[Rfam]
RNA sequence: UAUAUCCGUUGGUACAAAUCCAAUCACCUGAGUUUAAUAUGAAAACCAAUUCUCCAUUGGUAACAAACGGUUAUCCAUUAAGCGGAGGAAGUCUUAU
Numbered sequence: 001u002a003u004a005u006c007c008g009u010u011g012g013u014a015c016a017a018a019u020c021c022a023a024u025c026a027c028c029u030g031a032g033u034u035u036a037a038u039a040u041g042a043a044a045a046c047c048a049a050u051u052c053u054c055c056a057u058u059g060g061u062a063a064c065a066a067a068c069g070g071u072u073a074u075c076c077a078u079u080a081a082g083c084g085g086a087g088g089a090a091g092u093c094u095u096a097u
Base pairs, nucleotide, nucleotide: 009023010022011021012020052087053086054085055084056078057077059075060074061073062072063071064070
A member of the RNA family "Plastid-rps12 3UTR RNA" from Phtheirospermum japonicum, 97 nucleotides long. The base pairs follow the family's consensus structure, which was predicted with LocARNA. Rfam's curators write: Plastid rpl20 is a non-coding RNA (ncRNA) recognised in plastids. It was found in the three prime untranslated region (3UTR) of rps12 gene, its 3UTR location sugest a role in transcript maduration. The match comes from Rfam's covariance-model search (97 bits). For this family Rfam cites "Retrograde signaling in plants: A critical review focusing on the GUN pathway and beyond" (Richter et al., Plant Commun, 2023).